RNA sequence: UAAUAAUGUGAAGCGCCAGAGCUUAUGAUAAAAUGUUAUCUAAGCUGACGAGGACAGGGUUAAUCGAGAUUUUCGGCGGGUGCCCUGCGGUGAAUCGCCACCGUUAGAAGUCUACAAAACCAUUGAGUGAUUGAUGGGACAAAAAGGCUUUAGCUGAUAG
Numbered sequence: 001u002a003a004u005a006a007u008g009u010g011a012a013g014c015g016c017c018a019g020a021g022c023u024u025a026u027g028a029u030a031a032a033a034u035g036u037u038a039u040c041u042a043a044g045c046u047g048a049c050g051a052g053g054a055c056a057g058g059g060u061u062a063a064u065c066g067a068g069a070u071u072u073u074c075g076g077c078g079g080g081u082g083c084c085c086u087g088c089g090g091u092g093a094a095u096c097g098c099c100a101c102c103g104u105u106a107g108a109a110g111u112c113u114a115c116a117a118a119a120c121c122a123u124u125g126a127g128u129g130a131u132u133g134a135u136g137g138g139a140c141a142a143a144a145a146g147g148c149u150u151u152a153g154c155u156g157a158u159a160g
Stems, first nucleotide, its partner, number of pairs: 020046006027039001055087005064076004088103005108150006120137007

glmS glucosamine-6-phosphate activated ribozyme aptamer: a 160-nucleotide RNA sequence from Alkaliphilus pronyensis. About the family: This entry contains a glucosamine-6-phosphate activated ribozyme that is found in the mRNA for GlmS. GlmS is an enzyme that uses fructose-6-phosphate and glutamine to generate glucosamine-6-phosphate. Gene Ontology terms of the family: regulation of gene expression and catalytic activity. The family's RNA type in Rfam is riboswitch.